[Rfam]
RNA sequence: CUGAUGGCGGCGUAUGGGUGGAAAUCGGAAUCAAUCGCCCAAUUCCCCUUCGCACCGGAGAAAAGUAUCCGGUAGGGCAACGCCUAAACGUCAG
Numbered sequence: 001c002u003g004a005u006g007g008c009g010g011c012g013u014a015u016g017g018g019u020g021g022a023a024a025u026c027g028g029a030a031u032c033a034a035u036c037g038c039c040c041a042a043u044u045c046c047c048c049u050u051c052g053c054a055c056c057g058g059a060g061a062a063a064a065g066u067a068u069c070c071g072g073u074a075g076g077g078c079a080a081c082g083c084c085u086a087a088a089c090g091u092c093a094g
Base pairs, nucleotide, nucleotide: 001094002093003092004091005090009084010083011082012081013080015041016040017039018038024035025034027032044079046077047076048075054073055072056071057070058069059068
RNA: L4-Archaeoglobi ribosomal protein leades